[Rfam]
RNA: Small nucleolar RNA SNORA51
Nucleotides: 133
Stems, first nucleotide, its partner, number of pairs: 001059001003057004021044003027038004073125003077121002087111003091107004095102001
Number, partner (000 for none) and nucleotide at each position: 001059u002000a003057u004056u005055u006054c007000a008000a009000a010000a011000g012000u013000g014000c015000u016000u017000a018000c019000c020000a021044c022043a023042g024000g025000c026000u027038g028037u029036g030035u031000u032000c033000u034000u035030a036029u037028a038027c039000u040000g041000a042023c043022u044021g045000u046000a047000c048000a049000g050000a051000a052000a053000a054006g055005g056004g057003a058000a059001g060000c061000a062000g063000a064000g065000c066000a067000a068000a069000c070000c071000c072000a073125u074124c075123c076000a077121a078120u079000a080000u081000a082000c083000a084000c085000a086000u087111c088110a089109g090000c091107c092106u093105a094104g095102c096000a097000u098000c099000u100000g101000u102095g103000c104094c105093u106092g107091g108000u109089c110088u111087g112000g113000a114000c115000u116000g117000u118000g119000a120078a121077u122000a123075g124074g125073g126000g127000g128000a129000c130000a131000a132000a133000g